[Rfam]
RNA sequence: UGAGUGUUAUGAUGAUGGGGUGUUUUACCCUUAGUCUAGCUCUGGUCUACCGCCGAUUUUUUCGGCGG
Numbered sequence: 001u002g003a004g005u006g007u008u009a010u011g012a013u014g015a016u017g018g019g020g021u022g023u024u025u026u027a028c029c030c031u032u033a034g035u036c037u038a039g040c041u042c043u044g045g046u047c048u049a050c051c052g053c054c055g056a057u058u059u060u061u062u063c064g065g066c067g068g
Stems, first nucleotide, its partner, number of pairs: 002042004011036003017031006050068007
A member of the RNA family "L17 ribosomal protein downstream element" from Streptococcus henryi, 68 nucleotides long. The base pairs follow the family's consensus structure, which is taken from published work. By type it is a cis-regulatory element.